A member of the RNA family "Small nucleolar RNA SNORD73" from Dipodomys ordii, 73 nucleotides long. Lineage of the source: Eukaryota > Deuterostomia > Tetrapoda > Castorimorpha > Dipodomys.
RNA sequence: AAUGAAUGAUGACAAAAUGUUUCGGUCCCAUAUGAUACAUACUGAUUAUGCCAAUACAUUUGUUUCUGACAUU
Dot-bracket structure: ((((.................................................................))))